[Rfam]
RNA sequence: ACUUUAUAAUGGCAAACCUAUUGAAAAAUAGGGACGCAAAGCUAGAGGGACUACAUCCAACAAGGAUAUGUCAGCCAGUUGCAUUG
Numbered sequence: 001a002c003u004u005u006a007u008a009a010u011g012g013c014a015a016a017c018c019u020a021u022u023g024a025a026a027a028a029u030a031g032g033g034a035c036g037c038a039a040a041g042c043u044a045g046a047g048g049g050a051c052u053a054c055a056u057c058c059a060a061c062a063a064g065g066a067u068a069u070g071u072c073a074g075c076c077a078g079u080u081g082c083a084u085u086g
Stems, first nucleotide, its partner, number of pairs: 012037002017032006040080004047076002049072003056066003